[Rfam]
RNA sequence: CCUCUUUCCCAAAGACUGUUCUUCAUCUAUAUUUAAAAGGCUGGUUUAUCAGCUAUGGUAAUAAAUGGACAAUGGAAUAAGCCCAUUGGACCCGGGGGCGGUACCCGGCGCCUCCACCAAAAUAUAAUCAAUAAAGCUUAUACUUUGGUGGGGGCGAAAUAGGAUCGACAAGGGUGUAAAGAUUGCUCUUUUACUCGGCAUUGUACCACCGUCAUCGGACUAAAUUAGUAGUUGCAAACGACAACUAUGCGGAAGCACGUCUCGCUGCUUAAGCAGUGCGAAGGCUUCAAAUCAAGCCUUAAACCGUCGCAGGUUUAAGCGGGGUCCGGAGGCACCUGGCAACAGAAGCCUUCACU
Numbered sequence: 001c002c003u004c005u006u007u008c009c010c011a012a013a014g015a016c017u018g019u020u021c022u023u024c025a026u027c028u029a030u031a032u033u034u035a036a037a038a039g040g041c042u043g044g045u046u047u048a049u050c051a052g053c054u055a056u057g058g059u060a061a062u063a064a065a066u067g068g069a070c071a072a073u074g075g076a077a078u079a080a081g082c083c084c085a086u087u088g089g090a091c092c093c094g095g096g097g098g099c100g101g102u103a104c105c106c107g108g109c110g111c112c113u114c115c116a117c118c119a120a121a122a123u124a125u126a127a128u129c130a131a132u133a134a135a136g137c138u139u140a141u142a143c144u145u146u147g148g149u150g151g152g153g154g155c156g157a158a159a160u161a162g163g164a165u166c167g168a169c170a171a172g173g174g175u176g177u178a179a180a181g182a183u184u185g186c187u188c189u190u191u192u193a194c195u196c197g198g199c200a201u202u203g204u205a206c207c208a209c210c211g212u213c214a215u216c217g218g219a220c221u222a223a224a225u226u227a228g229u230a231g232u233u234g235c236a237a238a239c240g241a242c243a244a245c246u247a248u249g250c251g252g253a254a255g256c257a258c259g260u261c262u263c264g265c266u267g268c269u270u271a272a273g274c275a276g277u278g279c280g281a282a283g284g285c286u287u288c289a290a291a292u293c294a295a296g297c298c299u300u301a302a303a304c305c306g307u308c309g310c311a312g313g314u315u316u317a318a319g320c321g322g323g324g325u326c327c328g329g330a331g332g333c334a335c336c337u338g339g340c341a342a343c344a345g346a347a348g349c350c351u352u353c354a355c356u
Base pairs, nucleotide, nucleotide: 040053041052042051043050044049057195058194059193060192061191067188068187070185071184072183073182082174083173084172086171087170088169092108093107094106095105096104109156110155111154112153113152114151115150196211197210198209201222203220206218207217322337323336324335325334328353329352330351331350332349333348
RNA: Alphaproteobacteria transfer-messenger RNA
Organism: Bartonella bovis